[Rfam]
Nucleotides: 066
Base pairs, nucleotide, nucleotide: 001066002065003064004063005062006061007060009058010057011056014054015053016052017051021042022041023040024039025038026037027036028035029034
Number, partner (000 for none) and nucleotide at each position: 001066c002065c003064c004063g005062g006061u007060c008000g009058g010057c011056g012000c013000g014054c015053a016052c017051c018000g019000a020000a021042g022041c023040c024039c025038u026037a027036c028035g029034u030000g031000c032000c033000c034029a035028c036027g037026u038025g039024g040023g041022g042021u043000c044000c045000g046000c047000a048000g049000u050000a051017g052016g053015u054014g055000c056011c057010g058009c059000g060007g061006g062005c063004c064003g065002g066001g
About this RNA:
A member of the RNA family "DUF3800-VIII RNA", 66 nucleotides long. It is annotated as a small RNA. Rfam's curators put it in the seed alignment. Rfam's curators write: Bacteroidetes, Cyanobacteria, Firmicutes, Planctomycetes (1 example), Proteobacteria, Tenericutes (1 example). Pairs were carried over by alignment from the consensus structure, which is taken from published work.